Notes
Small nucleolar RNA SNORD82: a 71-nucleotide RNA from Tupaia belangeri. Pairs were carried over by alignment from the consensus structure, which was predicted with PFOLD. Rfam links the family to the GO terms nucleolus and RNA processing. The source organism's lineage runs through Eukaryota, Dipnotetrapodomorpha, Amniota, Eutheria and Tupaia. snoRNA U82 or Z25 is found in both humans and mice. Rfam 15.1 lists 649 matches to the family in 590 species.
[Rfam]
RNA sequence: GACACAAAUGAUGUUUGACACAGGGACUUAAUACGGAAACCUGAUACUACAUUUGCAAUGUGCUGAUGUGC
Numbered sequence: 001g002a003c004a005c006a007a008a009u010g011a012u013g014u015u016u017g018a019c020a021c022a023g024g025g026a027c028u029u030a031a032u033a034c035g036g037a038a039a040c041c042u043g044a045u046a047c048u049a050c051a052u053u054u055g056c057a058a059u060g061u062g063c064u065g066a067u068g069u070g071c
Base pairs, nucleotide, nucleotide: 003070004069005068006067
Dot-bracket structure: ..((((............................................................)))).